Selenocysteine transfer RNA: a 95-nucleotide RNA sequence from Halarsenatibacter silvermanii. Its family is annotated with triplet codon-amino acid adaptor activity in the Gene Ontology. A search with the family's covariance model found it, with a score of 74 bits.
RNA sequence: GGGAAUGGCUGAGCCCAUGGUGGGCUCCACGGACUUCAAAUCCGUUGGCGGGUCGGCUGACCGGCCCGCGGUGGGUUCGAUUCCCACACAUUCCC
Numbered sequence: 001g002g003g004a005a006u007g008g009c010u011g012a013g014c015c016c017a018u019g020g021u022g023g024g025c026u027c028c029a030c031g032g033a034c035u036u037c038a039a040a041u042c043c044g045u046u047g048g049c050g051g052g053u054c055g056g057c058u059g060a061c062c063g064g065c066c067c068g069c070g071g072u073g074g075g076u077u078c079g080a081u082u083c084c085c086a087c088a089c090a091u092u093c094c095c
Base pairs, nucleotide, nucleotide: 001095002094003093004092005091006090007089008087011027012026013025014024015023016022029045030044031043032042033041048069049068050067051066052065053064054063072086073085074084075083